[Rfam]
This 180-nucleotide sequence from Pseudomonas brassicacearum belongs to the Rfam family "Pseudomonas sRNA P1".
The organism belongs to Pseudomonas brassicacearum subsp. brassicacearum, within Bacteria.
Rfam's curators put it in the seed alignment.
Rfam describes the family as follows. This small RNA (sRNA) was computationally identified in the genome of the opportunistic pathogen Pseudomonas aeruginosa and its expression verified by northern blot analysis. There appears to be two related copies of P1 sRNA in the P.aeruginosa PA01 genome and both copies appear to be located upstream of predicted glutamine synthetase genes.
It is annotated as a non-coding RNA gene.

RNA sequence: ACCCCGGUAUUAUUGCUGUUAUGGGUUUGAAUCGAGCUUAGCCUUGUUCAUUUUUUUACACAACACCCCCGUAAAAAAUACAACACGGCCCGCUCAAGCCCGCGGGCGCCAAGACCCUUAAAGGGAAAAAAACGCCCUAAAUUGCCUCAAAAAAGCCCUGAAGGUGCUUUUUUAGGGCAA
Dot-bracket structure: ......................((((((.....(.(....((((.(((...((((((((...........))))))))...)))).))).).)..))))))..............................................................((.(.......).))..